[Rfam]
RNA sequence: GACGGUGACCCCUCUACUCGGAUCGUCCGGCACGUUCCUGCCGGGAAGGGAUGUGAUC
Numbered sequence: 001g002a003c004g005g006u007g008a009c010c011c012c013u014c015u016a017c018u019c020g021g022a023u024c025g026u027c028c029g030g031c032a033c034g035u036u037c038c039u040g041c042c043g044g045g046a047a048g049g050g051a052u053g054u055g056a057u058c
Stems, first nucleotide, its partner, number of pairs: 010050004015046001027044006
RNA: msiK RNA
Organism: Nocardia amikacinitolerans